This 127-nucleotide sequence from Lactococcus garvieae belongs to the Rfam family "Ribosomal protein L20 leader". Rfam classes the family as a cis-regulatory leader. Lineage of the source: Bacteria > Bacillati > Bacillota > Streptococcaceae > Lactococcus garvieae. Its family is annotated with regulation of gene expression in the Gene Ontology. About the family: This family is a putative r-protein leader autoregulatory structure found in B. subtilis and other low-GC Gram-positive bacteria. It is located in the 5' untranslated regions of mRNAs encoding initiation factor 3 followed by ribosomal proteins L35 and L20 (infC-rpmI-rplT). A Rho-independent transcription terminator structure that is probably involved in regulation is included at the 3' end.
[Rfam]
RNA sequence: GUUGAAAAGCAGAAGCACCCGCUUCUCGCCUGAGUGGUAAUAGCCCUGGGCAACAAAAUGGAAUUAUUCAUAAAACGAAUGUUUUCAUUAGCGGGGCGCACUAUGCGUUCCGCUUUUGUUUUUCUAA
Number, nucleotide and partner (000 for none) at each position: 001g000002u000003u000004g000005a000006a000007a000008a000009g000010c000011a026012g025013a024014a023015g022016c021017a000018c000019c000020c000021g016022c015023u014024u013025c012026u011027c000028g051029c050030c049031u000032g000033a000034g046035u000036g044037g000038u000039a000040a000041u000042a000043g000044c036045c000046c034047u000048g000049g030050g029051c028052a000053a000054c000055a000056a000057a000058a000059u000060g000061g000062a000063a000064u000065u000066a000067u000068u000069c000070a000071u000072a000073a000074a000075a000076c000077g000078a000079a000080u000081g000082u000083u000084u000085u000086c000087a000088u000089u000090a114091g113092c112093g111094g110095g109096g108097c107098g106099c105100a000101c000102u000103a000104u000105g099106c098107g097108u096109u095110c094111c093112g092113c091114u090115u000116u000117u000118g000119u000120u000121u000122u000123u000124c000125u000126a000127a000